[Rfam]
RNA sequence: GGUCGGUGAAGUCCUACCCCCACCACCACGUGGUGCCGACUGGAAACGGAACUCCGGUUCCAGCCAACGGGGGAGG
Numbered sequence: 001g002g003u004c005g006g007u008g009a010a011g012u013c014c015u016a017c018c019c020c021c022a023c024c025a026c027c028a029c030g031u032g033g034u035g036c037c038g039a040c041u042g043g044a045a046a047c048g049g050a051a052c053u054c055c056g057g058u059u060c061c062a063g064c065c066a067a068c069g070g071g072g073g074a075g076g
Base pairs, nucleotide, nucleotide: 013076014075015074017072018071019070020069022034023033024032040063041062042061043060044059045058047056048055049054
RNA: drz-agam-1 ribozyme